Overview: Shown here is an 80-nucleotide RNA from Streptomyces inusitatus, a member of the family "nrdJ RNA". Rfam classes the family as a small RNA. Pairs were carried over by alignment from the consensus structure, which is taken from published work. Lineage of the source: Bacteria > Actinomycetota > Kitasatosporales > Streptomycetaceae > Streptomyces.
RNA sequence: AUCCGUCAUGGGCGCCGAGCUGCGCCCGUGACACCACACCAAGACUGUGCUCCGGGAAGAUCUGGGCACUUCACGAUGUU
Numbered sequence: 001a002u003c004c005g006u007c008a009u010g011g012g013c014g015c016c017g018a019g020c021u022g023c024g025c026c027c028g029u030g031a032c033a034c035c036a037c038a039c040c041a042a043g044a045c046u047g048u049g050c051u052c053c054g055g056g057a058a059g060a061u062c063u064g065g066g067c068a069c070u071u072c073a074c075g076a077u078g079u080u
Stems, first nucleotide, its partner, number of pairs: 005032011047069006054062001